[Rfam]
Nucleotides: 168
Base pairs, nucleotide, nucleotide: 001024002023025148026147027146028145029144030143035075076133077132078131084107085106086105087104088103089102090101091100110127111126112125113124
Number, partner (000 for none) and nucleotide at each position: 001024u002023c003000g004000c005000g006000u007000c008000a009000a010000g011000c012000g013000c014000c015000g016000u017000c018000g019000g020000c021000a022000g023002g024001a025148g026147c027146g028145g029144g030143g031000g032000a033000c034000c035075c036000a037000a038000g039000g040000u041000a042000a043000g044000u045000g046000c047000c048000g049000c050000g051000c052000c053000g054000g055000g056000c057000a058000g059000u060000u061000c062000g063000c064000c065000g066000g067000a068000g069000c070000g071000g072000c073000u074000a075035g076133g077132g078131g079000u080000g081000a082000a083000g084107c085106c086105g087104u088103g089102c090101c091100u092000c093000a094000c095000a096000a097000a098000a099000g100091g101090g102089g103088c104087a105086c106085g107084g108000c109000c110127g111126g112125g113124c114000a115000a116000c117000u118000c119000a120000a121000c122000c123000g124113g125112c126111c127110c128000g129000a130000a131078c132077c133076c134000g135000a136000c137000a138000g139000c140000u141000c142000a143030c144029c145028u146027c147026g148025c149000a150000g151000g152000c153000g154000u155000c156000g157000g158000u159000g160000a161000g162000g163000g164000g165000a166000u167000c168000c

Rfam assigns this 168-nucleotide sequence from Streptomyces naganishii to the family "c-di-AMP riboswitch aptamer (ydaO/yuaA leader)". This family represents a conserved RNA structure found upstream of the ydaO and yuaA genes in Bacillus subtilis and related genes in other bacteria. The source organism's lineage runs through Bacteria, Actinomycetota, Streptomycetaceae, Streptomyces and Streptomyces naganishii.